RNA sequence: GGAUGUCAUAUUCUAAAAAGGUAUGGCAAGUAGGAUUCAGCUAAUCCUGCAAGACUAUCAAAUUGCCGGAAAGUCCUGUUUGAAGUCAUUGGUACCGCUUGCUAAGUGAAAGCCUAGCCAAGCACCAUAGGGAAACCUGUGGGUAUGGUAACAAUCCAAUGAGUAGGGAUAAUCGGCAGCCAAGUCCUAAAGGCAAUGUAUGUUGCCAAUGGAUGCAGUUCACAGACUAAAUGGUAGUCGGGGUGCAUGCCCUUAAGAUAUAGUCGGGCCCUAUCGAGAGAUAGCC
Numbered sequence: 001g002g003a004u005g006u007c008a009u010a011u012u013c014u015a016a017a018a019a020g021g022u023a024u025g026g027c028a029a030g031u032a033g034g035a036u037u038c039a040g041c042u043a044a045u046c047c048u049g050c051a052a053g054a055c056u057a058u059c060a061a062a063u064u065g066c067c068g069g070a071a072a073g074u075c076c077u078g079u080u081u082g083a084a085g086u087c088a089u090u091g092g093u094a095c096c097g098c099u100u101g102c103u104a105a106g107u108g109a110a111a112g113c114c115u116a117g118c119c120a121a122g123c124a125c126c127a128u129a130g131g132g133a134a135a136c137c138u139g140u141g142g143g144u145a146u147g148g149u150a151a152c153a154a155u156c157c158a159a160u161g162a163g164u165a166g167g168g169a170u171a172a173u174c175g176g177c178a179g180c181c182a183a184g185u186c187c188u189a190a191a192g193g194c195a196a197u198g199u200a201u202g203u204u205g206c207c208a209a210u211g212g213a214u215g216c217a218g219u220u221c222a223c224a225g226a227c228u229a230a231a232u233g234g235u236a237g238u239c240g241g242g243g244u245g246c247a248u249g250c251c252c253u254u255a256a257g258a259u260a261u262a263g264u265c266g267g268g269c270c271c272u273a274u275c276g277a278g279a280g281a282u283a284g285c286c
Base pairs, nucleotide, nucleotide: 003012053239054238055237056236057235059233060232064178065177066176067175068174069173074169075168076167077166179219180218184214185213186212187211192207193206194205195204196203223266225265226264227263228262229261241252242251243250244249271284272283273282274281275280
The record is a 286-nucleotide RNA sequence from Monoraphidium neglectum, which matches "Group I catalytic intron" in Rfam.
Group I catalytic introns are large self-splicing ribozymes.
The family has 12 seed sequences and 5,602 matches in Rfam 15.1.
Pairs were carried over by alignment from the consensus structure, which is taken from published work.
NCBI's taxonomy places the organism under Eukaryota, Chlorophyta, Chlorophyceae, Sphaeropleales, Monoraphidium.
Rfam links the family to the GO term Group I intron splicing.